[Rfam]
RNA sequence: GCGGGUGUGAUGAUGAAACCAUUGUGGACUAGAGUUUCUGAUCUGGGUUUAGUCCCCAGAAGUUGAAGACAAACCCUUGGCUGUCUGAGCACUCGA
Numbered sequence: 001g002c003g004g005g006u007g008u009g010a011u012g013a014u015g016a017a018a019c020c021a022u023u024g025u026g027g028a029c030u031a032g033a034g035u036u037u038c039u040g041a042u043c044u045g046g047g048u049u050u051a052g053u054c055c056c057c058a059g060a061a062g063u064u065g066a067a068g069a070c071a072a073a074c075c076c077u078u079g080g081c082u083g084u085c086u087g088a089g090c091a092c093u094c095g096a
Base pairs, nucleotide, nucleotide: 002095003094004093005092006091007090008089035068036067037066038065042061043059044058045057046056047055
Dot-bracket structure: .(((((((..........................((((...((((((.......))))).)...))))....................))))))).
Rfam assigns this 96-nucleotide RNA from Vitis rotundifolia to the family "Small nucleolar RNA Z157/R69/R10". Rfam classes the family as a C/D-box small nucleolar RNA. Rfam 15.1 lists 836 matches to the family in 232 species.